[Rfam]
RNA sequence: CUGUUACAAUUUGCCGGUCAUUGGGGAGUAGCCGCUCUUCGUUUCGAAGGGGCUUACGUCAACAUACUUGACCGGCAGGUCAUGGCGUAAGCGGUUCUAAGCCUGGCAAGACCUUUGACCACAAUGCCUCCGAUUUGGCCGGGGAGGCGUUGUGGUCAAUCGUCUGUAAACCGGCCGGAGAACAUU
Numbered sequence: 001c002u003g004u005u006a007c008a009a010u011u012u013g014c015c016g017g018u019c020a021u022u023g024g025g026g027a028g029u030a031g032c033c034g035c036u037c038u039u040c041g042u043u044u045c046g047a048a049g050g051g052g053c054u055u056a057c058g059u060c061a062a063c064a065u066a067c068u069u070g071a072c073c074g075g076c077a078g079g080u081c082a083u084g085g086c087g088u089a090a091g092c093g094g095u096u097c098u099a100a101g102c103c104u105g106g107c108a109a110g111a112c113c114u115u116u117g118a119c120c121a122c123a124a125u126g127c128c129u130c131c132g133a134u135u136u137g138g139c140c141g142g143g144g145a146g147g148c149g150u151u152g153u154g155g156u157c158a159a160u161c162g163u164c165u166g167u168a169a170a171c172c173g174g175c176c177g178g179a180g181a182a183c184a185u186u
Stems, first nucleotide, its partner, number of pairs: 036050003052092010069082005093171001095169002098166002

Annotation: This 186-nucleotide RNA sequence from Nitrosomonas europaea belongs to the Rfam family "Manganese Mn2+ riboswitch aptamer (yybP-ykoY)". The organism belongs to Nitrosomonas europaea, within Bacteria. The pairing is the family consensus, mapped onto this sequence. A reference for the family is Barrick et al. (2004), "New RNA motifs suggest an expanded scope for riboswitches in bacterial genetic control", Proc Natl Acad Sci U S A.